[Rfam]
RNA sequence: UCGCGCAUCUUGUUGUCCAAGUGUAGUUUUUGGCGAAACCAUUUGAUCAUGCAACAAGAUGCGCUUCCA
Numbered sequence: 001u002c003g004c005g006c007a008u009c010u011u012g013u014u015g016u017c018c019a020a021g022u023g024u025a026g027u028u029u030u031u032g033g034c035g036a037a038a039c040c041a042u043u044u045g046a047u048c049a050u051g052c053a054a055c056a057a058g059a060u061g062c063g064c065u066u067c068c069a
Stems, first nucleotide, its partner, number of pairs: 003064014034045004